Description:
Shown here is a 100-nucleotide RNA from Acidihalobacter aeolianus, a member of the family "Guanidine-I riboswitch aptamer". A search with the family's covariance model found it, with a score of 92 bits. About the family: This family represents a conserved RNA structure found upstream of the ykkC and yxkD genes in Bacillus subtilis and related genes in other bacteria. The function of this family is unclear although it has been suggested that it may function to switch on efflux pumps and detoxification systems in response to harmful environmental molecules.
RNA sequence: AUUAAAGGCGACUAGGGUUCCGCCCGUACCCACGGGGCCUGGACCGAGAGUCGCCGGCCCCGGAUGCGGGGCUACACGGCGGGAUAAAAGCCCGGGAGAG
Numbered sequence: 001a002u003u004a005a006a007g008g009c010g011a012c013u014a015g016g017g018u019u020c021c022g023c024c025c026g027u028a029c030c031c032a033c034g035g036g037g038c039c040u041g042g043a044c045c046g047a048g049a050g051u052c053g054c055c056g057g058c059c060c061c062g063g064a065u066g067c068g069g070g071g072c073u074a075c076a077c078g079g080c081g082g083g084a085u086a087a088a089a090g091c092c093c094g095g096g097a098g099a100g
Base pairs, nucleotide, nucleotide: 007055008054009053010052011051012050015045016044020042021041022039023036024035025034026033027032056073057072058071059070060069061068062067075095077098081093082092083091
About this RNA
The organism belongs to Acidihalobacter, within Bacteria. Rfam links the family to the GO term regulation of gene expression.